[Rfam]
RNA sequence: UCGGCUCGGUAUCGAUGGCGACACCAGGAGACUGGUGUGUGGAGGAAGUCUGACGUAAGUCAGCCCGGCGUAAGCCGCGAACAGGUCAGCGGCCUGGGGAAACCUCGCAAGAACUCAACAAUCUGUCAUCCCGAUGCACAGAUACCAGCUG
Numbered sequence: 001u002c003g004g005c006u007c008g009g010u011a012u013c014g015a016u017g018g019c020g021a022c023a024c025c026a027g028g029a030g031a032c033u034g035g036u037g038u039g040u041g042g043a044g045g046a047a048g049u050c051u052g053a054c055g056u057a058a059g060u061c062a063g064c065c066c067g068g069c070g071u072a073a074g075c076c077g078c079g080a081a082c083a084g085g086u087c088a089g090c091g092g093c094c095u096g097g098g099g100a101a102a103c104c105u106c107g108c109a110a111g112a113a114c115u116c117a118a119c120a121a122u123c124u125g126u127c128a129u130c131c132c133g134a135u136g137c138a139c140a141g142a143u144a145c146c147a148g149c150u151g
Stems, first nucleotide, its partner, number of pairs: 002151004008146006019041002021038006042106004050063005082099001083095005
The record is a 151-nucleotide RNA sequence from Escherichia coli, which matches "EFASI RNA" in Rfam. By type it is a small RNA. The source organism's lineage runs through Bacteria, Pseudomonadati, Pseudomonadota, Enterobacterales and Escherichia coli. Rfam's curators put it in the seed alignment.